[Rfam]
RNA: Small nucleolar RNA SNORD127
Organism: Thinocorus orbignyianus
RNA sequence: AGGCAACCAUGAUGACAGGAAUUGUCGCUGGAUGUUACCACAUGGAGACACCAGUCCCUCUAAACUGAUGUUGCCC
Numbered sequence: 001a002g003g004c005a006a007c008c009a010u011g012a013u014g015a016c017a018g019g020a021a022u023u024g025u026c027g028c029u030g031g032a033u034g035u036u037a038c039c040a041c042a043u044g045g046a047g048a049c050a051c052c053a054g055u056c057c058c059u060c061u062a063a064a065c066u067g068a069u070g071u072u073g074c075c076c
Stems, first nucleotide, its partner, number of pairs: 002075006